[Rfam]
RNA: mir-255 microRNA precursor family
RNA sequence: GUAGGAAAUCUGUUCAAUUUUCCGCAUAACGCGCAAAACUGAAAAGAUUUGUUACAG
Numbered sequence: 001g002u003a004g005g006a007a008a009u010c011u012g013u014u015c016a017a018u019u020u021u022c023c024g025c026a027u028a029a030c031g032c033g034c035a036a037a038a039c040u041g042a043a044a045a046g047a048u049u050u051g052u053u054a055c056a057g
Stems, first nucleotide, its partner, number of pairs: 001055004006050006013043001015041002018038004023033002